[Rfam]
RNA sequence: UUGUGAGGACCGCUUAAUCGGCGCCCUCGGGCACCGAGCCGGGGAACCACGUUCUCUGGGGUGAAUCCUCUUGCGCCGCUUGCGGUUCGGAGGUAGGACCGCACUUCCCGGUCCGAACCCGUCAGCUAACUCGGUCGGCGGACCAACGGAAGAAGG
Numbered sequence: 001u002u003g004u005g006a007g008g009a010c011c012g013c014u015u016a017a018u019c020g021g022c023g024c025c026c027u028c029g030g031g032c033a034c035c036g037a038g039c040c041g042g043g044g045a046a047c048c049a050c051g052u053u054c055u056c057u058g059g060g061g062u063g064a065a066u067c068c069u070c071u072u073g074c075g076c077c078g079c080u081u082g083c084g085g086u087u088c089g090g091a092g093g094u095a096g097g098a099c100c101g102c103a104c105u106u107c108c109c110g111g112u113c114c115g116a117a118c119c120c121g122u123c124a125g126c127u128a129a130c131u132c133g134g135u136c137g138g139c140g141g142a143c144c145a146a147c148g149g150a151a152g153a154a155g156g
Base pairs, nucleotide, nucleotide: 011140012139013138014137018037019036020035038135039134040133041132042131043130048058049057059120060119061118067093068092069091070090096114097113098112099111
A member of the RNA family "c-di-AMP riboswitch aptamer (ydaO/yuaA leader)" from Antrihabitans auranticaus, 156 nucleotides long.
This family represents a conserved RNA structure found upstream of the ydaO and yuaA genes in Bacillus subtilis and related genes in other bacteria.
The pairing is the family consensus, mapped onto this sequence.